[Rfam]
The record is a 101-nucleotide sequence from Romboutsia sp. CE17, which matches "Purine riboswitch aptamer" in Rfam. Pairs were carried over by alignment from the consensus structure, which is taken from published work.
RNA sequence: AUACAAUGUUUUACAUGAAUUCGUAUAAUCCCAAUAAUAUGGAUUGGGAGUCUCUACCAGGACCCGUAAAAUUCCUGAUUACGAAGAAAGCUUACACAGAU
Number, nucleotide and partner (000 for none) at each position: 001a000002u000003a000004c000005a000006a000007u000008g000009u000010u000011u000012u000013a000014c000015a000016u000017g000018a000019a000020u085021u084022c083023g082024u081025a080026u000027a000028a000029u049030c048031c047032c046033a045034a044035u043036a000037a000038u000039a000040u000041g000042g000043a035044u034045u033046g032047g031048g030049a029050g000051u000052c000053u000054c000055u000056a000057c000058c077059a076060g075061g074062a073063c000064c000065c000066g000067u000068a000069a000070a000071a000072u000073u062074c061075c060076u059077g058078a000079u000080u025081a024082c023083g022084a021085a020086g000087a000088a000089a000090g000091c000092u000093u000094a000095c000096a000097c000098a000099g000100a000101u000
A search with the family's covariance model found it, with a score of 75 bits.